[Rfam]
RNA sequence: ACGCGUCAUUUUCAUCCAAUUGGCAACGUGAUUCUAAUGUUGGCGAUUCAGCGUAUUUCUGACGCAAAAUUGAUAACUUCUCCAUUGACGUCUAGUCAGACUAAACUGGCUCGGAUACAAUUAGGGAGUUUACACUU
Numbered sequence: 001a002c003g004c005g006u007c008a009u010u011u012u013c014a015u016c017c018a019a020u021u022g023g024c025a026a027c028g029u030g031a032u033u034c035u036a037a038u039g040u041u042g043g044c045g046a047u048u049c050a051g052c053g054u055a056u057u058u059c060u061g062a063c064g065c066a067a068a069a070u071u072g073a074u075a076a077c078u079u080c081u082c083c084a085u086u087g088a089c090g091u092c093u094a095g096u097c098a099g100a101c102u103a104a105a106c107u108g109g110c111u112c113g114g115a116u117a118c119a120a121u122u123a124g125g126g127a128g129u130u131u132a133c134a135c136u137u
Stems, first nucleotide, its partner, number of pairs: 003065006018048005024042006075130007084121004090116004095110005